RNA: Small nucleolar RNA SNORA47
RNA sequence: UGGAGGACUGAGAAAAUAAGGCAGUUUCAUAUACUGCAUUUAUUGGUUACAACCUCCAAAAUCAAAAUGUUGCAAAAGCAAAUCAUGUUCCUUUUACUUGUGGAGGAACACUGCUGCUAUUUGCAUACAUCUU
Numbered sequence: 001u002g003g004a005g006g007a008c009u010g011a012g013a014a015a016a017u018a019a020g021g022c023a024g025u026u027u028c029a030u031a032u033a034c035u036g037c038a039u040u041u042a043u044u045g046g047u048u049a050c051a052a053c054c055u056c057c058a059a060a061a062u063c064a065a066a067a068u069g070u071u072g073c074a075a076a077a078g079c080a081a082a083u084c085a086u087g088u089u090c091c092u093u094u095u096a097c098u099u100g101u102g103g104a105g106g107a108a109c110a111c112u113g114c115u116g117c118u119a120u121u122u123g124c125a126u127a128c129a130u131c132u133u
Stems, first nucleotide, its partner, number of pairs: 002057005015044004019039001021037005078124002082121001085118001086116002094108002097106002